[Rfam]
RNA: GP20-b RNA
RNA sequence: GGUCCACCUGCGGACCUAACAAUGCAGGACGGCGGGAGAUGGCGACCUCCUAAAACGCCUA
Number, nucleotide and partner (000 for none) at each position: 001g016002g015003u014004c013005c000006a000007c000008c027009u026010g025011c024012g023013g004014a003015c002016c001017u000018a000019a000020c000021a000022a000023u012024g011025c010026a009027g008028g000029a000030c000031g000032g000033c000034g000035g050036g049037a048038g047039a000040u000041g000042g000043c000044g000045a000046c000047c038048u037049c036050c035051u000052a000053a000054a000055a000056c000057g000058c000059c000060u000061a000